A member of the RNA family "mir-184 microRNA precursor family" from Bemisia tabaci, 82 nucleotides long.
Rfam 15.1 lists 948 matches to the family in 823 species.
It scores 56 bits against the family's covariance model.
The literature on the family includes a 2005 paper in Genes Dev by Chen et al., "The developmental miRNA profiles of zebrafish as determined by small RNA cloning".
Rfam links the family to the GO terms RISC complex and gene silencing by miRNA.

RNA sequence: UCUCCUCCAGAUCCUUUUCAUUCUCCUGUCGAGUGUUUAUUGUAUACCACUGGACGGAAAACUGACAAGGGUUUGUGGGAGA
Numbered sequence: 001u002c003u004c005c006u007c008c009a010g011a012u013c014c015u016u017u018u019c020a021u022u023c024u025c026c027u028g029u030c031g032a033g034u035g036u037u038u039a040u041u042g043u044a045u046a047c048c049a050c051u052g053g054a055c056g057g058a059a060a061a062c063u064g065a066c067a068a069g070g071g072u073u074u075g076u077g078g079g080a081g082a
Stems, first nucleotide, its partner, number of pairs: 012071005018065003021061002024058003029053002